[Rfam]
RNA sequence: CACAACCGGAGUUCUCCGAAAAUAAAGACACAUCGCCCAGGUCAGGGCA
Numbered sequence: 001c002a003c004a005a006c007c008g009g010a011g012u013u014c015u016c017c018g019a020a021a022a023u024a025a026a027g028a029c030a031c032a033u034c035g036c037c038c039a040g041g042u043c044a045g046g047g048c049a
Stems, first nucleotide, its partner, number of pairs: 007018004035048004
Overview
RAGATH-25 RNA: a 49-nucleotide sequence. The family's RNA type in Rfam is small RNA. Pairs were carried over by alignment from the consensus structure, which is taken from published work.